[Rfam]
RNA: mir-129 microRNA precursor family
RNA sequence: GCGAAUCUUUUUGCGGUUUGGGCUUGCUGUUCAUCUAAUAGCCGGCAAGCCCUUACCCCAAAAAGCAUUCG
Numbered sequence: 001g002c003g004a005a006u007c008u009u010u011u012u013g014c015g016g017u018u019u020g021g022g023c024u025u026g027c028u029g030u031u032c033a034u035c036u037a038a039u040a041g042c043c044g045g046c047a048a049g050c051c052c053u054u055a056c057c058c059c060a061a062a063a064a065g066c067a068u069u070c071g
Stems, first nucleotide, its partner, number of pairs: 007065007015057003020052004025047001027045002